[Rfam]
RNA sequence: GGAUCGAUGAUGACUUCACCAUAAACAUUCCUUGGAAAAGCUGAACAAAACGAGUGAAAACUCAUUACCGUUGCUCUCAUUGAAACUGAGGUCC
Numbered sequence: 001g002g003a004u005c006g007a008u009g010a011u012g013a014c015u016u017c018a019c020c021a022u023a024a025a026c027a028u029u030c031c032u033u034g035g036a037a038a039a040g041c042u043g044a045a046c047a048a049a050a051c052g053a054g055u056g057a058a059a060a061c062u063c064a065u066u067a068c069c070g071u072u073g074c075u076c077u078c079a080u081u082g083a084a085a086c087u088g089a090g091g092u093c094c
Stems, first nucleotide, its partner, number of pairs: 001094005026056005032048003